[Rfam]
RNA sequence: UGAUACCAGGGGCAAAAGGUCCUGCGUUUCAUGCUUGCAUGAAAAAGCAUGACCUUGGGACCCGAACAAACAUGAGAAAGCAACCCGAUUAAGGUGUAUUUCGAAUGUUUGUAAGAUUGUGAGAGCUCGAAGACCGUAACAAUCUGUGUAUCA
Numbered sequence: 001u002g003a004u005a006c007c008a009g010g011g012g013c014a015a016a017a018g019g020u021c022c023u024g025c026g027u028u029u030c031a032u033g034c035u036u037g038c039a040u041g042a043a044a045a046a047g048c049a050u051g052a053c054c055u056u057g058g059g060a061c062c063c064g065a066a067c068a069a070a071c072a073u074g075a076g077a078a079a080g081c082a083a084c085c086c087g088a089u090u091a092a093g094g095u096g097u098a099u100u101u102c103g104a105a106u107g108u109u110u111g112u113a114a115g116a117u118u119g120u121g122a123g124a125g126c127u128c129g130a131a132g133a134c135c136g137u138a139a140c141a142a143u144c145u146g147u148g149u150a151u152c153a
Stems, first nucleotide, its partner, number of pairs: 001153006010062002013059001016056006023049003027045002029042005066112008076102004083095003114145007125135001127133002

Clostridiales-1 RNA: a 153-nucleotide RNA from Blautia liquoris.